[Rfam]
RNA sequence: AUCUGACACGCGCCAACGGUGGCAAGUCUUGCCCCGACGUUUGGCCGCGGUGCCAUGAC
Numbered sequence: 001a002u003c004u005g006a007c008a009c010g011c012g013c014c015a016a017c018g019g020u021g022g023c024a025a026g027u028c029u030u031g032c033c034c035c036g037a038c039g040u041u042u043g044g045c046c047g048c049g050g051u052g053c054c055a056u057g058a059c
Stems, first nucleotide, its partner, number of pairs: 007049001009047002013043001015042002018035002021033005
Rfam assigns this 59-nucleotide RNA from Betaproteobacteria bacterium SCN2 to the family "Selenocysteine insertion sequence 3". On this family, see Huttenhofer et al., RNA 1996: "Solution structure of mRNA hairpins promoting selenocysteine incorporation in Escherichia coli and their base-specific interaction with special elongation factor SELB". A search with the family's covariance model found it, with a score of 73 bits.